[Rfam]
RNA sequence: UUAUAUUUCGCAAAUAUUUUGGGAGACAUUGAUUUUUCUCCCCGUGCUUUCUCGUUCUUCCUUGUGGAGUGCGUUGCGCCGCCCAGCCCUGUCGUCCCCCGGAGGUGACCCCUCCCUCCUGCCUGCCCGCCAGCCUGACCUGUGCCCGGCUCGCGGGCCGCAGUCUCGGCCCAGGCGCGCCCCCGGCAGCUCUUGACGCGAUG
Numbered sequence: 001u002u003a004u005a006u007u008u009c010g011c012a013a014a015u016a017u018u019u020u021g022g023g024a025g026a027c028a029u030u031g032a033u034u035u036u037u038c039u040c041c042c043c044g045u046g047c048u049u050u051c052u053c054g055u056u057c058u059u060c061c062u063u064g065u066g067g068a069g070u071g072c073g074u075u076g077c078g079c080c081g082c083c084c085a086g087c088c089c090u091g092u093c094g095u096c097c098c099c100c101g102g103a104g105g106u107g108a109c110c111c112c113u114c115c116c117u118c119c120u121g122c123c124u125g126c127c128c129g130c131c132a133g134c135c136u137g138a139c140c141u142g143u144g145c146c147c148g149g150c151u152c153g154c155g156g157g158c159c160g161c162a163g164u165c166u167c168g169g170c171c172c173a174g175g176c177g178c179g180c181c182c183c184c185g186g187c188a189g190c191u192c193u194u195g196a197c198g199c200g201a202u203g
Stems, first nucleotide, its partner, number of pairs: 023040004043073008076178005101115005125158006132151004
The family of this 203-nucleotide RNA sequence from Pteropus vampyrus is "Mnt IRES".
The family's RNA type in Rfam is internal ribosome entry site.
It scores 234 bits against the family's covariance model.
Taxonomically the source falls in Pteropus (Eukaryota, Metazoa, Eutheria, Pteropodoidea).
Its family is annotated with ribosome binding in the Gene Ontology.
The literature on the family includes a 2001 paper in Oncogene by Stoneley et al., "An internal ribosome entry segment in the 5' untranslated region of the mnt gene".
About the family: This family represents the Mnt internal ribosome entry site (IRES). Mnt is a transcriptional repressor related to the Myc/Mad family of transcription factors. It is thought that this family allows efficient Mnt synthesis when cap-dependent translation initiation is reduced.